[Rfam]
RNA sequence: GCCAGCUUGUCAGGAGAGAGUCCGCCGCCCGCUGCAUUGCGCGUGCCGCGCGGACCGCCGAAGGCGCAGGCAGACACCGAACGCUCAGGCAAAAGGACUGGCAAACCGCC
Numbered sequence: 001g002c003c004a005g006c007u008u009g010u011c012a013g014g015a016g017a018g019a020g021u022c023c024g025c026c027g028c029c030c031g032c033u034g035c036a037u038u039g040c041g042c043g044u045g046c047c048g049c050g051c052g053g054a055c056c057g058c059c060g061a062a063g064g065c066g067c068a069g070g071c072a073g074a075c076a077c078c079g080a081a082c083g084c085u086c087a088g089g090c091a092a093a094a095g096g097a098c099u100g101g102c103a104a105a106c107c108g109c110c
Stems, first nucleotide, its partner, number of pairs: 007104007020055006057090003060086002064084003069078002
The family of this 110-nucleotide RNA sequence from Diaphorobacter sp. HDW4B is "Glycine riboswitch aptamer". The organism belongs to Diaphorobacter, within Bacteria. A reference for the family is Babina et al. (2017), "In Vivo Behavior of the Tandem Glycine Riboswitch in Bacillus subtilis", MBio. The match comes from Rfam's covariance-model search (48 bits).